[Rfam]
RNA: Small nucleolar RNA U109
Organism: Crypturellus soui
RNA sequence: CUGCAUGUUAAGGAAAAAAUCAUUCUGCUCCUUAUUCCCUUAAGGAGCAUGAAUAUGUAUAUAACAUGCUAGAGAAAACAAGGAGUCUUCAGGGCCACCAGUCUUACAGUGAAGGCUGAGUGGUAGUAUAUGUCUCCUACAUUC
Number, nucleotide and partner (000 for none) at each position: 001c000002u000003g069004c068005a067006u066007g065008u064009u000010a000011a000012g000013g000014a000015a000016a000017a000018a000019a000020u000021c000022a000023u000024u051025c000026u049027g048028c047029u046030c045031c044032u000033u000034a000035u000036u000037c000038c000039c000040u000041u000042a000043a000044g031045g030046a029047g028048c027049a026050u000051g024052a000053a000054u000055a000056u000057g000058u000059a000060u000061a000062u000063a000064a008065c007066a006067u005068g004069c003070u000071a000072g000073a000074g000075a000076a000077a000078a000079c000080a000081a000082g137083g136084a135085g134086u000087c000088u000089u000090c000091a000092g000093g000094g124095c123096c000097a000098c120099c118100a117101g116102u115103c114104u113105u112106a000107c000108a000109g000110u000111g000112a105113a104114g103115g102116c101117u100118g099119a000120g098121u000122g000123g095124u094125a000126g000127u000128a000129u000130a000131u000132g000133u000134c085135u084136c083137c082138u000139a000140c000141a000142u000143u000144c000